This 37-nucleotide RNA from Aminobacter sp. J15 belongs to the Rfam family "abiF RNA".
RNA sequence: CCUCCCACGCCUCUCACUGAAGCGCACCCUGGGAGGC
Dot-bracket structure: ((((((.(((...........)))......)))))).
About the family: Actinobacteria, Bacteroidetes, Clostridia, Proteobacteria, one Clostridia phage. It scores 38 bits against the family's covariance model. Rfam classes the family as a small RNA. The family's consensus secondary structure is taken from published work.